Source information
This 127-nucleotide sequence from Cnephaeus nilssonii belongs to the Rfam family "U4atac minor spliceosomal RNA". U4atac is an essential component of the minor U12-type spliceosome complex which is required for removal of the rarer class of eukaryotic introns (AT-AC, U12-type). A search with the family's covariance model found it, with a score of 85 bits. A reference for the family is Shukla et al. (2002), "Domains of human U4atac snRNA required for U12-dependent splicing in vivo", Nucleic Acids Res.
[Rfam]
RNA sequence: ACCUUCCUUUUCUUGGGGUUGUGCUACUGUCCAAUGAACACAUAGUGAGGGCAGUACUGUUGAUGACUAAAGAACACAUUCGUAUUGACUAGAAUUCUGCUUUACCUGGGUGCAAUUUUUUGGGAAA
Numbered sequence: 001a002c003c004u005u006c007c008u009u010u011u012c013u014u015g016g017g018g019u020u021g022u023g024c025u026a027c028u029g030u031c032c033a034a035u036g037a038a039c040a041c042a043u044a045g046u047g048a049g050g051g052c053a054g055u056a057c058u059g060u061u062g063a064u065g066a067c068u069a070a071a072g073a074a075c076a077c078a079u080u081c082g083u084a085u086u087g088a089c090u091a092g093a094a095u096u097c098u099g100c101u102u103u104a105c106c107u108g109g110g111u112g113c114a115a116u117u118u119u120u121u122g123g124g125a126a127a
Stems, first nucleotide, its partner, number of pairs: 006018004021060003026055007038046002082113005090104004095099001

Rfam classes the family as a spliceosomal small nuclear RNA. Its family is annotated with U4atac snRNP, pre-mRNA 5'-splice site binding and mRNA 5'-splice site recognition in the Gene Ontology.